[Rfam]
RNA sequence: GCCCGUCGUGCGGGAGAGAACUCCCCCUCGGAGUCGCCGAAGGCGUAACCCCCCGGAAUCGCUCAGGCAAAAGGACCGCCGACAGAA
Numbered sequence: 001g002c003c004c005g006u007c008g009u010g011c012g013g014g015a016g017a018g019a020a021c022u023c024c025c026c027c028u029c030g031g032a033g034u035c036g037c038c039g040a041a042g043g044c045g046u047a048a049c050c051c052c053c054c055g056g057a058a059u060c061g062c063u064c065a066g067g068c069a070a071a072a073g074g075a076c077c078g079c080c081g082a083c084a085g086a087a
Base pairs, nucleotide, nucleotide: 005083006082007081008080010079011078012077013076020034021033022032023031036068037067038066039064040063043062044061045060049056050055
RNA: Glycine riboswitch aptamer